mir-881 microRNA precursor family: a 78-nucleotide RNA from Mus musculus. Pairs were carried over by alignment from the consensus structure, which was predicted with RNAalifold.
RNA sequence: UGCAGUACAAUAUUCAGAGAGAUAACAGUCACAUCUUUUCUAAAGUAACUGUGUCUUUUCUGAAUAGAGUAAUGUUCA
Numbered sequence: 001u002g003c004a005g006u007a008c009a010a011u012a013u014u015c016a017g018a019g020a021g022a023u024a025a026c027a028g029u030c031a032c033a034u035c036u037u038u039u040c041u042a043a044a045g046u047a048a049c050u051g052u053g054u055c056u057u058u059u060c061u062g063a064a065u066a067g068a069g070u071a072a073u074g075u076u077c078a
Stems, first nucleotide, its partner, number of pairs: 002075003006071003011066009020056002025052005031046002034044001

Gene Ontology terms of the family: female sex differentiation, RISC complex and cellular response to leukemia inhibitory factor.